[Rfam]
RNA sequence: CUACUGUGAUGACUAAUUGUAUGUGUCAUGUGACUGGGGCAUGGGAUACCCAGGUAG
Numbered sequence: 001c002u003a004c005u006g007u008g009a010u011g012a013c014u015a016a017u018u019g020u021a022u023g024u025g026u027c028a029u030g031u032g033a034c035u036g037g038g039g040c041a042u043g044g045g046a047u048a049c050c051c052a053g054g055u056a057g
Stems, first nucleotide, its partner, number of pairs: 001057004
The family of this 57-nucleotide sequence from Carlito syrichta is "Small nucleolar RNA SNORD66". NCBI's taxonomy places the organism under Eukaryota, Metazoa, Deuterostomia, Vertebrata, Carlito. For this family Rfam cites "RNomics: an experimental approach that identifies 201 candidates for novel, small, non-messenger RNAs in mouse" (Huttenhofer et al., EMBO J, 2001). Rfam describes the family as follows. snoRNA HBII-142 is part of the C/D family of snoRNAs. It is the human orthologue of the mouse MBII-142 snoRNA and is predicted to guide 2'O-ribose methylation of small 18S rRNA at residue C1272.